Fluoride riboswitch aptamer (crcB RNA motif): a 60-nucleotide sequence from Thermotomaculum hydrothermale.

RNA sequence: AAAAAAAAUGGGGAUGGGGUCCCCCUUAAAGCGCCUGAGGCUGAUGACUCCUGCCUGCUA
Numbered sequence: 001a002a003a004a005a006a007a008a009u010g011g012g013g014a015u016g017g018g019g020u021c022c023c024c025c026u027u028a029a030a031g032c033g034c035c036u037g038a039g040g041c042u043g044a045u046g047a048c049u050c051c052u053g054c055c056u057g058c059u060a
Stems, first nucleotide, its partner, number of pairs: 010025004016051006033041003

The family's consensus secondary structure is taken from published work.